[Rfam]
RNA sequence: UAUGCGGGCCGGACGGUCGCGUGGGGCUUGCCCCCAUGAGGAAAGUCCGGGCUUCCAGAGGCGGGAUGCCGGCUAACGGCCGGGCGGGGAAACCCGACGGAAAGUGCUGAAGAAAAGGAAACUCCCACUGGCCGCGCAAGCGGUUAAGAGAAAAGCUGAGAAGGUGCGGUAAGAGCGCACCAGCAUGCCGGCAACGGCAUGGCUUGGUAAACCCCAUCCGAAGCAAGGGCAAAUAGGCACGCGAUACGGUUCAGCCUCUCCGUGCGUGCGGGUAGCCUGCUAGAGGUGCAUGGUGACAUGUACUCAAGAUAAAUGGCCGUCUUCAAAGACAGAACCCGGCUUACAGGCCCGCUAAGGCA
Numbered sequence: 001u002a003u004g005c006g007g008g009c010c011g012g013a014c015g016g017u018c019g020c021g022u023g024g025g026g027c028u029u030g031c032c033c034c035c036a037u038g039a040g041g042a043a044a045g046u047c048c049g050g051g052c053u054u055c056c057a058g059a060g061g062c063g064g065g066a067u068g069c070c071g072g073c074u075a076a077c078g079g080c081c082g083g084g085c086g087g088g089g090a091a092a093c094c095c096g097a098c099g100g101a102a103a104g105u106g107c108u109g110a111a112g113a114a115a116a117g118g119a120a121a122c123u124c125c126c127a128c129u130g131g132c133c134g135c136g137c138a139a140g141c142g143g144u145u146a147a148g149a150g151a152a153a154a155g156c157u158g159a160g161a162a163g164g165u166g167c168g169g170u171a172a173g174a175g176c177g178c179a180c181c182a183g184c185a186u187g188c189c190g191g192c193a194a195c196g197g198c199a200u201g202g203c204u205u206g207g208u209a210a211a212c213c214c215c216a217u218c219c220g221a222a223g224c225a226a227g228g229g230c231a232a233a234u235a236g237g238c239a240c241g242c243g244a245u246a247c248g249g250u251u252c253a254g255c256c257u258c259u260c261c262g263u264g265c266g267u268g269c270g271g272g273u274a275g276c277c278u279g280c281u282a283g284a285g286g287u288g289c290a291u292g293g294u295g296a297c298a299u300g301u302a303c304u305c306a307a308g309a310u311a312a313a314u315g316g317c318c319g320u321c322u323u324c325a326a327a328g329a330c331a332g333a334a335c336c337c338g339g340c341u342u343a344c345a346g347g348c349c350c351g352c353u354a355a356g357g358c359a
Base pairs, nucleotide, nucleotide: 001355004352005351006350007349008348009347010346011344012321013320014319015318016317017316018315020038021037022036023035024034025033026032043342044341045340047339048338049337050336051335052223053222054221055220059257060256061255062254064219065218066217067216068215069083070082071081072080073079084098085096086095087094088093099214100213104212105211106208107207108206122155123154125150129146130145131144132143133142134141135140163181164180165179166178167177168176183203184201185200186199187198188197189196190195227278228277229276230275237269238268239267240266241265242264249261285304286303287302288301289300290299291298292297
Dot-bracket structure: (..(((((((((((((((.(((((((.....)))))))....[[[.[[[[[((((...[[[[.((((((((((.....)))))(((((....)))).)((...(((((.............((.(...(((((((....)))))))...)...)).......((((((.......)))))).((((((((....))))))).)..)))..)))))))))))))...((((......((((((......(....]]]]...)..)))))).....))))......((((((((....))))))))..........))))))).............]]]]]]]].).)))))))..)....
Rfam assigns this 359-nucleotide sequence from Slackia heliotrinireducens to the family "Bacterial RNase P class A". The family's RNA type in Rfam is ribozyme. Gene Ontology terms of the family: tRNA processing, dimeric ribonuclease P complex and ribonuclease P activity. The organism belongs to Slackia heliotrinireducens, within Bacteria.